This 68-nucleotide RNA from Sphingobium amiense belongs to the Rfam family "terC RNA". By type it is a cis-regulatory element. The source organism's lineage runs through Bacteria, Pseudomonadati, Alphaproteobacteria, Sphingomonadales and Sphingobium.
RNA sequence: GAGGCGAGCCGGGUUCCUCUGGCGGCGGCGGUGCCCCCCUCAUCCCGCCGCGAUGUCGGUUCGCAUCG
Numbered sequence: 001g002a003g004g005c006g007a008g009c010c011g012g013g014u015u016c017c018u019c020u021g022g023c024g025g026c027g028g029c030g031g032u033g034c035c036c037c038c039c040u041c042a043u044c045c046c047g048c049c050g051c052g053a054u055g056u057c058g059g060u061u062c063g064c065a066u067c068g
Stems, first nucleotide, its partner, number of pairs: 006062007022051007